[Rfam]
RNA sequence: GUUUUUAAAGGACAGUCCGCUCCGAAAGGGUGGGACGCAAAGCUAUGAGUCUCUAUCAUUUUUGGCUGAGGUGAUUGUCUGGUUGCAAGA
Numbered sequence: 001g002u003u004u005u006u007a008a009a010g011g012a013c014a015g016u017c018c019g020c021u022c023c024g025a026a027a028g029g030g031u032g033g034g035a036c037g038c039a040a041a042g043c044u045a046u047g048a049g050u051c052u053c054u055a056u057c058a059u060u061u062u063u064g065g066c067u068g069a070g071g072u073g074a075u076u077g078u079c080u081g082g083u084u085g086c087a088a089g090a
Stems, first nucleotide, its partner, number of pairs: 013037001017033004022029002041084004047079002049075003056069003
About this RNA
Rfam assigns this 90-nucleotide RNA sequence from Pelotomaculum schinkii to the family "c-di-GMP-I riboswitch aptamer". The base pairs follow the family's consensus structure, which is taken from published work.